[Rfam]
RNA sequence: CGAUAUCUUCAGGGCAGGGUGUAAUUCCCGACCGGCGGUAAAGUCCGCGAGCGCAUGGCGCAUGAUUUGGUGCAAUUCCAAAACCGACCGUAUAGUCUGGAUGAAAGAAGAGAAAA
Numbered sequence: 001c002g003a004u005a006u007c008u009u010c011a012g013g014g015c016a017g018g019g020u021g022u023a024a025u026u027c028c029c030g031a032c033c034g035g036c037g038g039u040a041a042a043g044u045c046c047g048c049g050a051g052c053g054c055a056u057g058g059c060g061c062a063u064g065a066u067u068u069g070g071u072g073c074a075a076u077u078c079c080a081a082a083a084c085c086g087a088c089c090g091u092a093u094a095g096u097c098u099g100g101a102u103g104a105a106a107g108a109a110g111a112g113a114a115a116a
Stems, first nucleotide, its partner, number of pairs: 004113001006111005017029003031096002033086002035048004043084002066082005088099001090097001
A member of the RNA family "FMN riboswitch aptamer (RFN element)" from Clostridium sp. CAG:43, 116 nucleotides long. Taxonomically the source falls in Clostridium (Bacteria, Bacillota, Eubacteriales, Clostridiaceae). A search with the family's covariance model found it, with a score of 107 bits. The RFN element is a highly conserved domain that is found frequently in the 5'-untranslated regions of prokaryotic mRNAs that encode for flavin mononucleotide (FMN) biosynthesis and transport proteins. This element is a metabolite-dependent riboswitch that directly binds FMN in the absence of proteins. In Bacillus subtilis, the riboswitch most likely controls gene expression by causing premature transcription termination within the 5' untranslated region of the ribDEAHT operon and precluding access to the ribosome-binding site of ypaA mRNA.The FMN riboswitch structure, reported in present an FMN-bound six-stem junction, adopts a butterfly-like scaffold, stapled together by opposingly directed but nearly identically folded peripheral domains. Rfam links the family to the GO term FMN binding. Pairs were carried over by alignment from the consensus structure, which is taken from published work.